[Rfam]
RNA sequence: UGGAAAAAAACAACACAGUGAGUAAGAUAGGAGCUCUGGCCAUUAUAUUAAGAAGUUGAUUUCAGAAUACAAUUCGAGGAUAUUACAUGGAACAAAAAGCAACUGAACUUUCCC
Dot-bracket structure: ..((((......................................(((((....(((((...........)))))....))))).........................))))..
About this RNA:
The family of this 114-nucleotide RNA sequence from Oryza punctata is "Small nucleolar RNA J26". The base pairs follow the family's consensus structure, which was predicted with ILM. It scores 114 bits against the family's covariance model. NCBI's taxonomy places the organism under Eukaryota, Viridiplantae, Spermatophyta, Oryzinae, Oryza.